Rfam assigns this 97-nucleotide RNA sequence to the family "skipping-rope RNA". The base pairs follow the family's consensus structure, which is taken from published work. The family's RNA type in Rfam is small RNA.
[Rfam]
RNA sequence: AUUCUUUGAGGUGGUAAAUUUCGUGUCAACCACACGCCGCCGGUAUGGACAGGGGAAAACCGAGAGAUGCAGGGGAAUGGCACGCCUACCCAAAAAU
Numbered sequence: 001a002u003u004c005u006u007u008g009a010g011g012u013g014g015u016a017a018a019u020u021u022c023g024u025g026u027c028a029a030c031c032a033c034a035c036g037c038c039g040c041c042g043g044u045a046u047g048g049a050c051a052g053g054g055g056a057a058a059a060c061c062g063a064g065a066g067a068u069g070c071a072g073g074g075g076a077a078u079g080g081c082a083c084g085c086c087u088a089c090c091c092a093a094a095a096a097u
Base pairs, nucleotide, nucleotide: 001097002096003095005093006092008090011033012032013031014030015029023083024082025081026080027079035064037055038054040053069089071087072086073085